[Rfam]
RNA sequence: UAGGGUACCUUCCAAUCCUCUUUAGUUCAACCAAAUGAACUAAAUUUCCAAAAUCACAUCAGUUUUUGAAACUUUUAGUUCAUUUGAUUGAACUAAAGAGGGUUGGAGGGUACCCUA
Dot-bracket structure: .(((((((((((((((((((((((((((((.((((((((((((...............................)))))))))))).))))))))))))))))))))))))))))).

This 117-nucleotide RNA sequence from Aegilops tauschii belongs to the Rfam family "MIR5070 microRNA precursor family". A search with the family's covariance model found it, with a score of 107 bits. The family is grouped with related families in Rfam's "MIR2863 microRNA precursor clan". The organism belongs to Aegilops tauschii, within Eukaryota.